Description:
Rfam assigns this 94-nucleotide RNA from Clostridium aciditolerans to the family "Glycine riboswitch aptamer". The match comes from Rfam's covariance-model search (63 bits). On this family, see Mandal et al., Science 2004: "A glycine-dependent riboswitch that uses cooperative binding to control gene expression".
[Rfam]
RNA sequence: GGACGAACCUCUGGAGAGACUCGACUGAGCACCGAAGGGGAAAGCCAAAAUAUAUUUUGGUGAAGCUCUCAGGUAAAAGGACAGGGGAUUUUGA
Numbered sequence: 001g002g003a004c005g006a007a008c009c010u011c012u013g014g015a016g017a018g019a020c021u022c023g024a025c026u027g028a029g030c031a032c033c034g035a036a037g038g039g040g041a042a043a044g045c046c047a048a049a050a051u052a053u054a055u056u057u058u059g060g061u062g063a064a065g066c067u068c069u070c071a072g073g074u075a076a077a078a079g080g081a082c083a084g085g086g087g088a089u090u091u092u093g094a
Stems, first nucleotide, its partner, number of pairs: 006089001008087006020029003031074003034070002038068003044061007